[Rfam]
The record is a 131-nucleotide RNA from Orycteropus afer, which matches "Small nucleolar RNA SNORA69" in Rfam. It is annotated as an H/ACA-box small nucleolar RNA. Lineage of the source: Eukaryota > Eumetazoa > Bilateria > Mammalia > Orycteropus afer. About the family: U69 is a member of the H/ACA class of small nucleolar RNAs (snoRNAs) which act as guides in the the modification of uridines to pseudouridines. Rfam links the family to the GO terms nucleolus and RNA processing. The family has 16 seed sequences and 808 matches in Rfam 15.1.

RNA sequence: AAAGCAGAUUGGAAUUACCGUGCUUCAGUUUGUGGAAGCACUGACAUUAUCCUUAUGAAAGAAAAGCUGUGUUGAUCAUCUUUGGUUUUACCCUGAUGAGGGUAAAAUCCUGACAGUUAACAUGCACAAUU
Dot-bracket structure: ..(..((..........(.(((((((........))))))).)........))..)...........((((((((.(......(((((((((((....)))))))))))......))))))))).......